This 59-nucleotide RNA from Nostocoides sp. F2B08 belongs to the Rfam family "msiK RNA". Taxonomically the source falls in Nostocoides (Bacteria, Bacillati, Actinomycetota, Intrasporangiaceae). Pairs were carried over by alignment from the consensus structure, which is taken from published work.
RNA sequence: GGCUGCAUCCUGAUGCAACGGAUCGUCCGGCACGUACCUGCCGGCUGAAGGAAAGGCAA
Numbered sequence: 001g002g003c004u005g006c007a008u009c010c011u012g013a014u015g016c017a018a019c020g021g022a023u024c025g026u027c028c029g030g031c032a033c034g035u036a037c038c039u040g041c042c043g044g045c046u047g048a049a050g051g052a053a054a055g056g057c058a059a
Stems, first nucleotide, its partner, number of pairs: 009051003015045001027044006
It is annotated as a cis-regulatory element.